mir-9242 microRNA precursor family: a 64-nucleotide RNA from Myotis myotis.
It scores 67 bits against the family's covariance model.
RNA sequence: GGUCUCCCUCUGCAGGGCAAUUGAUCAUGGGGCUCCCAGAUCAAUAGUCCUGCAGAGGGAGGCC
Numbered sequence: 001g002g003u004c005u006c007c008c009u010c011u012g013c014a015g016g017g018c019a020a021u022u023g024a025u026c027a028u029g030g031g032g033c034u035c036c037c038a039g040a041u042c043a044a045u046a047g048u049c050c051u052g053c054a055g056a057g058g059g060a061g062g063c064c
Stems, first nucleotide, its partner, number of pairs: 001064018020045007029036002
Pairs were carried over by alignment from the consensus structure, which was predicted with RNAalifold. The source organism's lineage runs through Eukaryota, Bilateria, Craniata, Gnathostomata and Myotis.